The family of this 46-nucleotide sequence from Peribacillus faecalis is "PreQ1 (pre queuosine) riboswitch aptamer". A reference for the family is Kang et al. (2009), "Structural Insights into riboswitch control of the biosynthesis of queuosine, a modified nucleotide found in the anticodon of tRNA", Mol Cell. It scores 45 bits against the family's covariance model. Its family is annotated with queuosine biosynthetic process in the Gene Ontology. Rfam's curators write: This family is a bacterial riboswitch that binds to the metabolite preQ1, an intermediate in the biosynthesis of the modified nucleoside queuosine from GTP. One example of this riboswitch is located in the leader of the Bacillus subtilis ykvJKLM (queCDEF) operon which encodes four genes necessary for queuosine production. PreQ1 binding to the riboswitch aptamer is thought to induce premature transcription termination within the leader to down-regulate expression of these genes.
RNA sequence: AUUAAAGCGGUUCGAAACCAUCCCGCUCUAACAAAACUAGGGAGGU
Numbered sequence: 001a002u003u004a005a006a007g008c009g010g011u012u013c014g015a016a017a018c019c020a021u022c023c024c025g026c027u028c029u030a031a032c033a034a035a036a037c038u039a040g041g042g043a044g045g046u
Base pairs, nucleotide, nucleotide: 006027007026008025009024010023016038